[Rfam]
RNA sequence: CUGUUCCUUCUUCCUAUGCAUAUACCUCUUUGAGAGUCUACUUUAAAGAGGCGUAGCGCAUGGGAAAAUGGGGCUG
Numbered sequence: 001c002u003g004u005u006c007c008u009u010c011u012u013c014c015u016a017u018g019c020a021u022a023u024a025c026c027u028c029u030u031u032g033a034g035a036g037u038c039u040a041c042u043u044u045a046a047a048g049a050g051g052c053g054u055a056g057c058g059c060a061u062g063g064g065a066a067a068a069u070g071g072g073g074c075u076g
Stems, first nucleotide, its partner, number of pairs: 011066009021055003025051008